[Rfam]
RNA sequence: AGGUGUUGAUACCGAGAAGCGUGUCAGGAUGCGGGACUCGGAGUAGCCAUAUGUAGGGUUUUUGCUAUAAAAACCUCAACCUGACUAUAUGCACAACCGUGUGCAGACAGAAAAAAUAGCAAAUU
Numbered sequence: 001a002g003g004u005g006u007u008g009a010u011a012c013c014g015a016g017a018a019g020c021g022u023g024u025c026a027g028g029a030u031g032c033g034g035g036a037c038u039c040g041g042a043g044u045a046g047c048c049a050u051a052u053g054u055a056g057g058g059u060u061u062u063u064g065c066u067a068u069a070a071a072a073a074c075c076u077c078a079a080c081c082u083g084a085c086u087a088u089a090u091g092c093a094c095a096a097c098c099g100u101g102u103g104c105a106g107a108c109a110g111a112a113a114a115a116a117u118a119g120c121a122a123a124u125u
Base pairs, nucleotide, nucleotide: 002048003047004046012041013040014039015038016037020033021032022031024084025083026082027081064120065119066118090105091104092103093102094101095100
Shown here is a 125-nucleotide RNA from Pseudoselenomonas ruminis, a member of the family "drum RNA". NCBI's taxonomy places the organism under Bacteria, Bacillati, Selenomonadales, Selenomonadaceae, Pseudoselenomonas. Rfam's curators write: Firmicutes, Bacteroidetes (1 example), Proteobacteria (2 examples), Spirochaetes (2 examples). By type it is a small RNA.